[Rfam]
RNA sequence: AUACAAAAUCAUAAAAAACAACUAAUGUUUUAAUUUUUGAAUGGUUGUCGCACACAAACUUUGGUCAGGGCGUGGGCGACUUCUUUUUAUUUUUUU
Numbered sequence: 001a002u003a004c005a006a007a008a009u010c011a012u013a014a015a016a017a018a019c020a021a022c023u024a025a026u027g028u029u030u031u032a033a034u035u036u037u038u039g040a041a042u043g044g045u046u047g048u049c050g051c052a053c054a055c056a057a058a059c060u061u062u063g064g065u066c067a068g069g070g071c072g073u074g075g076g077c078g079a080c081u082u083c084u085u086u087u088u089a090u091u092u093u094u095u096u
Base pairs, nucleotide, nucleotide: 005037006036007035008034015031016030017029018028019027020026047080048079049078050077051076053074054073055072

Shown here is a 96-nucleotide RNA from Prevotella dentalis, a member of the family "ctRNA".
From the family's description: Rolling circle replication plasmids contain a number of mechanisms to maintain a low copy number. One of these methods is to transcribe a small RNA called ctRNA (for counter-transcribed RNA) than is transcribed on the opposite strand to RepB the replication initiation protein. ctRNA binds to the mRNA of repB and causes translational inhibition.
Pairs were carried over by alignment from the consensus structure, which is taken from published work.
A search with the family's covariance model found it, with a score of 87 bits.